This 58-nucleotide RNA from Mus spicilegus belongs to the Rfam family "U7 small nuclear RNA". The family has 49 seed sequences and 10,439 matches in Rfam 15.1. Pairs were carried over by alignment from the consensus structure, which was predicted with PFOLD. About the family: Animal histone pre-mRNAs are spliced by a different mechanism than nuclear pre-mRNAs and self-splicing introns. This processing involves the U7 snRNP, which contains only one RNA species: U7.
RNA sequence: AAGCAAACACAGCUCUUUUAGAAUUUUUCUGUUUUCUGAUUUUGAUUGGAAAACCCAA
Numbered sequence: 001a002a003g004c005a006a007a008c009a010c011a012g013c014u015c016u017u018u019u020a021g022a023a024u025u026u027u028u029c030u031g032u033u034u035u036c037u038g039a040u041u042u043u044g045a046u047u048g049g050a051a052a053a054c055c056c057a058a
Stems, first nucleotide, its partner, number of pairs: 031054010